[Rfam]
RNA sequence: GUGCAUCCUAUAGGAAUUGAACCUACAAAUUUGCCAACUAUGAGUUGGGCGCUUUAACUAUUCAGCCAUGGAUGC
Numbered sequence: 001g002u003g004c005a006u007c008c009u010a011u012a013g014g015a016a017u018u019g020a021a022c023c024u025a026c027a028a029a030u031u032u033g034c035c036a037a038c039u040a041u042g043a044g045u046u047g048g049g050c051g052c053u054u055u056a057a058c059u060a061u062u063c064a065g066c067c068a069u070g071g072a073u074g075c
Stems, first nucleotide, its partner, number of pairs: 003075006011025004040069003044066006051059001
Dot-bracket structure: ..((((((..((((.......))))..............(((.((((((.(.......).)))))))))))))))

A member of the RNA family "Plastid-ycf2 5UTR RNA" from Elaeis guineensis, 75 nucleotides long.
By type it is a cis-regulatory element.
It scores 88 bits against the family's covariance model.
Plastid ycf2 is a non-coding RNA (ncRNA) recognised in plastids. It was found in the prime untranslated region (5UTR) of ycf2 genes, it presents a tRNA-like motif which suggests it can be involved in mRNA maturation, particularly involved in defining the precise 5' end of the transcript.
The base pairs follow the family's consensus structure, which was predicted with LocARNA.